[Rfam]
RNA: mir-95 microRNA precursor family
Nucleotides: 083
Base pairs, nucleotide, nucleotide: 001083002082003081004080007077008076009075010074011073012072014070015069016068017067018066019065021063022062023061024060025059026058027057028056029055030054031053032052037051038050039049
Number, partner (000 for none) and nucleotide at each position: 001083c002082a003081c004080a005000u006000a007077g008076u009075a010074a011073g012072u013000g014070c015069u016068c017067a018066a019065u020000a021063a022062a023061u024060a025059c026058u027057a028056u029055u030054g031053a032052a033000u034000g035000a036000a037051u038050g039049a040000a041000u042000g043000c044000a045000u046000g047000a048000u049039u050038c051037a052032u053031u054030c055029a056028a057027u058026a059025g060024u061023a062022u063021u064000u065019a066018u067017u068016g069015a070014g071000c072012a073011c074010u075009u076008a077007c078000u079000a080004u081003g082002u083001g